[Rfam]
RNA sequence: GCUGAGCUCAGUAACAUGGGCUUGUAACCCAAGUGGGGGCAUUAAUGUGGUGGAAUGCGUAGGCCUGUCCAAAGGGUAGGGCUUGUGUUGCAAUUCUCUGGCCUGCCCUCUCCAAGCCCAGAGUUGGGUCACGUGGUCCAGGAGAAGGCUUGGGAUACUUGGCUCCUAAAGUGGGGUGGAUUGCGUGAGGCUGGUUGCACAGUGCAGCGAACAGCUUCCGCUUUGGGCAGUGGAAGGAUUACAGGCCGGUGUUGCACAAGUCCAAGGAAUGCCUGAUGGGCUGCCUAACUAGACCACCACAUUU
Numbered sequence: 001g002c003u004g005a006g007c008u009c010a011g012u013a014a015c016a017u018g019g020g021c022u023u024g025u026a027a028c029c030c031a032a033g034u035g036g037g038g039g040c041a042u043u044a045a046u047g048u049g050g051u052g053g054a055a056u057g058c059g060u061a062g063g064c065c066u067g068u069c070c071a072a073a074g075g076g077u078a079g080g081g082c083u084u085g086u087g088u089u090g091c092a093a094u095u096c097u098c099u100g101g102c103c104u105g106c107c108c109u110c111u112c113c114a115a116g117c118c119c120a121g122a123g124u125u126g127g128g129u130c131a132c133g134u135g136g137u138c139c140a141g142g143a144g145a146a147g148g149c150u151u152g153g154g155a156u157a158c159u160u161g162g163c164u165c166c167u168a169a170a171g172u173g174g175g176g177u178g179g180a181u182u183g184c185g186u187g188a189g190g191c192u193g194g195u196u197g198c199a200c201a202g203u204g205c206a207g208c209g210a211a212c213a214g215c216u217u218c219c220g221c222u223u224u225g226g227g228c229a230g231u232g233g234a235a236g237g238a239u240u241a242c243a244g245g246c247c248g249g250u251g252u253u254g255c256a257c258a259a260g261u262c263c264a265a266g267g268a269a270u271g272c273c274u275g276a277u278g279g280g281c282u283g284c285c286u287a288a289c290u291a292g293a294c295c296a297c298c299a300c301a302u303u304u
Base pairs, nucleotide, nucleotide: 001040002039003038004023005022006021007020008019009018010017028037029036030035044303045302046301047300048299049298050297051296052295053294056291057290059289060288062285063284064283069279070278071277074274075273076272077271078270079263080262081261082260083259084258085257086256088254090252093250098249099248100247101246102245103244104243105242107237108236111234112233113232114231116228117227118226119225120224121223122222123221124220126165127164128163129162130161131160133158134157135156137154138153139152140151141150142149166171173218174217175216176215177214182211184209185208186207191202192201193200

Plant signal recognition particle RNA: a 304-nucleotide sequence from Capsicum baccatum. The match comes from Rfam's covariance-model search (241 bits).